[Rfam]
RNA: hya RNA
Organism: Mycobacterium sp. 1164966.3
RNA sequence: AGCGCUGCGCAAGUGGGCCGACGGUCGACUCCGGUAGCGCAAGGGGCGUCAGCCCGCCCCGGAAAGCUGCAU
Numbered sequence: 001a002g003c004g005c006u007g008c009g010c011a012a013g014u015g016g017g018c019c020g021a022c023g024g025u026c027g028a029c030u031c032c033g034g035u036a037g038c039g040c041a042a043g044g045g046g047c048g049u050c051a052g053c054c055c056g057c058c059c060c061g062g063a064a065a066g067c068u069g070c071a072u
Base pairs, nucleotide, nucleotide: 003039004038005037006036007035008034043060044059045058046057047056048055